[Rfam]
RNA sequence: ACCUUCUGUAUAAGCACAAUGCUAAAACUGCAGAAACUAGGAUCACAUCUUGGUUUUUGUGAAAAUGCCAGCAGAGCACACACAAGAAGAAAAGUAACUGAACUAGACUGUAAAGACUGGAGUGGACCGCCUUCUAAUGUCCAGUGUCCUUUGCUUAAGAUUUGGUGUAAUACAG
Dot-bracket structure: ................(..((((...(.(...((.((((((((...)))))))).))......).)...))))..)......................((.((((((...........(.(.((((.............)))).).).............)))))).))......
Numbered sequence: 001a002c003c004u005u006c007u008g009u010a011u012a013a014g015c016a017c018a019a020u021g022c023u024a025a026a027a028c029u030g031c032a033g034a035a036a037c038u039a040g041g042a043u044c045a046c047a048u049c050u051u052g053g054u055u056u057u058u059g060u061g062a063a064a065a066u067g068c069c070a071g072c073a074g075a076g077c078a079c080a081c082a083c084a085a086g087a088a089g090a091a092a093a094g095u096a097a098c099u100g101a102a103c104u105a106g107a108c109u110g111u112a113a114a115g116a117c118u119g120g121a122g123u124g125g126a127c128c129g130c131c132u133u134c135u136a137a138u139g140u141c142c143a144g145u146g147u148c149c150u151u152u153g154c155u156u157a158a159g160a161u162u163u164g165g166u167g168u169a170a171u172a173c174a175g
Stems, first nucleotide, its partner, number of pairs: 017076001020073004027066001029064001033057002036054008099169002102166006119147001121145001123143004